This 85-nucleotide RNA sequence from Dinothrombium tinctorium belongs to the Rfam family "mir-7 microRNA precursor family". For this family Rfam cites "Identification of novel genes coding for small expressed RNAs" (Lagos-Quintana et al., Science, 2001). This family represents the microRNA (miRNA) precursor mir-7.

RNA sequence: GAUCAUUCACCAUAUGGAAGACUAGUGAUUUUGUUGUUCUAUUUAUAAGUAACAAAAAAUCACUGUCUUCUAAUGGCGUUUGAAU
Numbered sequence: 001g002a003u004c005a006u007u008c009a010c011c012a013u014a015u016g017g018a019a020g021a022c023u024a025g026u027g028a029u030u031u032u033g034u035u036g037u038u039c040u041a042u043u044u045a046u047a048a049g050u051a052a053c054a055a056a057a058a059a060u061c062a063c064u065g066u067c068u069u070c071u072a073a074u075g076g077c078g079u080u081u082g083a084a085u
Base pairs, nucleotide, nucleotide: 003083004082005081008078010076011075012074013073016070017069019068020067021066022065025063026062027061028060029059030058031057034055035054036053037052038051